[Rfam]
RNA sequence: CCGUGCUAGAUGGGGAGUCAGCGGUGCCCUGUAACCUGCAAUCCGCUAUAGCAGGAUUGAAUUCCUCACCUAGGCUUUAAUCUAUAUGGUCUGCCCCUUUGCAAGUGAUGUUGAGGGUUGGGUCCCAUGCGACGUAAGACUGUGAACCUCGUCAGGUCCGGAAGGAAGCAGCGAUAAGCAGCCCCUGCGUGUGACAUGGAUAAAUCUUGCCUGAGUCAACUACAAAGGUAACGCAUAUAGAUUUCUGUCAAAGUGAGGUGCACGG
Number, nucleotide and partner (000 for none) at each position: 001c265002c264003g263004u262005g261006c260007u000008a000009g058010a057011u056012g030013g029014g028015g027016a000017g025018u024019c023020a000021g000022c000023g019024g018025u017026g000027c015028c014029c013030u012031g000032u000033a000034a000035c055036c054037u053038g052039c051040a000041a000042u000043c000044c000045g000046c000047u000048a000049u000050a000051g039052c038053a037054g036055g035056a011057u010058u009059g000060a000061a000062u000063u000064c258065c257066u256067c255068a254069c253070c000071u000072a000073g249074g248075c247076u000077u000078u000079a243080a242081u241082c240083u239084a238085u237086a236087u235088g234089g000090u000091c000092u230093g229094c000095c000096c000097c227098u226099u225100u224101g223102c000103a000104a000105g220106u219107g217108a216109u215110g000111u000112u000113g000114a000115g212116g211117g210118u209119u000120g207121g206122g205123u204124c000125c199126c198127a197128u196129g195130c191131g190132a000133c189134g188135u187136a186137a000138g183139a000140c181141u180142g179143u178144g000145a000146a000147c000148c000149u174150c173151g172152u171153c000154a000155g000156g000157u166158c165159c164160g000161g000162a000163a000164g159165g158166a157167a000168g000169c000170a000171g152172c151173g150174a149175u000176a000177a000178g143179c142180a141181g140182c000183c138184c000185c000186u136187g135188c134189g133190u131191g130192u000193g000194a000195c129196a128197u127198g126199g125200a000201u000202a000203a000204a123205u122206c121207u120208u000209g118210c117211c116212u115213g000214a000215g109216u108217c107218a000219a106220c105221u000222a000223c101224a100225a099226a098227g097228g000229u093230a092231a000232c000233g000234c088235a087236u086237a085238u084239a083240g082241a081242u080243u079244u000245c000246u000247g075248u074249c073250a000251a000252a000253g069254u068255g067256a066257g065258g064259u000260g006261c005262a004263c003264g002265g001
RNA: Bacterial large signal recognition particle RNA